Rfam assigns this 131-nucleotide RNA sequence from Macaca mulatta to the family "Small nucleolar RNA SNORA9". Clan: SNORA9 clan. Rfam links the family to the GO terms nucleolus and RNA processing. By type it is an H/ACA-box small nucleolar RNA. Lineage of the source: Eukaryota > Opisthokonta > Chordata > Mammalia > Macaca. The family has 36 seed sequences and 1,202 matches in Rfam 15.1. The family's consensus secondary structure was predicted with PFOLD. A search with the family's covariance model found it, with a score of 107 bits. Rfam describes the family as follows. ACA9 is a member of the H/ACA class of snoRNA that guide the sites of modification of uridines to pseudouridines.

RNA sequence: UGGCAAACCUCCAGCGUGCUUGGGUCUGUGGUGACCUGUGCAUUCCUACACUGCUCGACAGAACAGUAUUGAAAUAGUUGAGGGUUUGUCCUGCUCCAUCCAGAGUAAGGUUAUAGAAAUUUCAGACAAUU
Numbered sequence: 001u002g003g004c005a006a007a008c009c010u011c012c013a014g015c016g017u018g019c020u021u022g023g024g025u026c027u028g029u030g031g032u033g034a035c036c037u038g039u040g041c042a043u044u045c046c047u048a049c050a051c052u053g054c055u056c057g058a059c060a061g062a063a064c065a066g067u068a069u070u071g072a073a074a075u076a077g078u079u080g081a082g083g084g085u086u087u088g089u090c091c092u093g094c095u096c097c098a099u100c101c102a103g104a105g106u107a108a109g110g111u112u113a114u115a116g117a118a119a120u121u122u123c124a125g126a127c128a129a130u131u
Base pairs, nucleotide, nucleotide: 004057006055008053017042018041019040023036024035025034026033070124071123072122073121074120085109086108087107088106089105091103092102093101